[Rfam]
RNA: Enterococcus sRNA 2410
Organism: Enterococcus phoeniculicola
RNA sequence: UUAGCUAUUUUAGAUAAGUUUGUAUUCAUCAUUAUGGAUACAAACAUACAACGUAAGUUUGUAUCUAUGAUGGCUAGAGAGUUUUGCAUCUGCAAAAAAGCCGCGUAGACAAUCGCUAAGUGGCUAGCAGAAACCGAUUUUUAUCGACUUUUUCAAUCCAUUUAGACGUAUUGUCUGAAUGGAUUUUUUAUUUUCAGAA
Numbered sequence: 001u002u003a004g005c006u007a008u009u010u011u012a013g014a015u016a017a018g019u020u021u022g023u024a025u026u027c028a029u030c031a032u033u034a035u036g037g038a039u040a041c042a043a044a045c046a047u048a049c050a051a052c053g054u055a056a057g058u059u060u061g062u063a064u065c066u067a068u069g070a071u072g073g074c075u076a077g078a079g080a081g082u083u084u085u086g087c088a089u090c091u092g093c094a095a096a097a098a099a100g101c102c103g104c105g106u107a108g109a110c111a112a113u114c115g116c117u118a119a120g121u122g123g124c125u126a127g128c129a130g131a132a133a134c135c136g137a138u139u140u141u142u143a144u145c146g147a148c149u150u151u152u153u154c155a156a157u158c159c160a161u162u163u164a165g166a167c168g169u170a171u172u173g174u175c176u177g178a179a180u181g182g183a184u185u186u187u188u189u190a191u192u193u194u195c196a197g198a199a
Stems, first nucleotide, its partner, number of pairs: 001077007011067006018045012050059003081145001083143001086140001088138003099125006106118003146175003151170001